The family of this 102-nucleotide RNA sequence from Pullulanibacillus pueri is "Guanidine-I riboswitch aptamer".
The organism belongs to Pullulanibacillus, within Bacteria.
About the family: This family represents a conserved RNA structure found upstream of the ykkC and yxkD genes in Bacillus subtilis and related genes in other bacteria. The function of this family is unclear although it has been suggested that it may function to switch on efflux pumps and detoxification systems in response to harmful environmental molecules.
The base pairs follow the family's consensus structure.
RNA sequence: AAUAAUGUUUUCUAGGGUUCCGUGAUGAUAAAUCAGACUGGUCCGAGAGAAAACGCACGACGUUUAUCGUGGUGAACACGGAGGGAUAAAAGCCCGGGAGAG
Numbered sequence: 001a002a003u004a005a006u007g008u009u010u011u012c013u014a015g016g017g018u019u020c021c022g023u024g025a026u027g028a029u030a031a032a033u034c035a036g037a038c039u040g041g042u043c044c045g046a047g048a049g050a051a052a053a054c055g056c057a058c059g060a061c062g063u064u065u066a067u068c069g070u071g072g073u074g075a076a077c078a079c080g081g082a083g084g085g086a087u088a089a090a091a092g093c094c095c096g097g098g099a100g101a102g
Stems, first nucleotide, its partner, number of pairs: 007054006015044002020041002022038001023035004056074003060070003077097001079100001083095003